[Rfam]
Rfam assigns this 123-nucleotide RNA from Treponema vincentii to the family "TD-1 RNA". The family's RNA type in Rfam is cis-regulatory element. Its Rfam clan is "TD (Treponema denticola) motifs". The organism belongs to Treponema vincentii, within Bacteria. The match comes from Rfam's covariance-model search (80 bits).
RNA sequence: AAAACACUGUCAAGUUUUCUUCCGAAAACUUGCUUAUUGUAUGCCGUUUCUCAUUUCAUUCUGAAACGGCGGGAAACAAGCACCUUCAGGAUUUGAAAAUCCUUUCAGUUGCUUGUUUUAAAA
Numbered sequence: 001a002a003a004a005c006a007c008u009g010u011c012a013a014g015u016u017u018u019c020u021u022c023c024g025a026a027a028a029c030u031u032g033c034u035u036a037u038u039g040u041a042u043g044c045c046g047u048u049u050c051u052c053a054u055u056u057c058a059u060u061c062u063g064a065a066a067c068g069g070c071g072g073g074a075a076a077c078a079a080g081c082a083c084c085u086u087c088a089g090g091a092u093u094u095g096a097a098a099a100u101c102c103u104u105u106c107a108g109u110u111g112c113u114u115g116u117u118u119u120a121a122a123a
Base pairs, nucleotide, nucleotide: 012031013030014029015028016027017026018025019024043070044069045068046067047066048065049064050063075117076116077115078114079113080112081111082110084108085107088103089102090101091100092099093098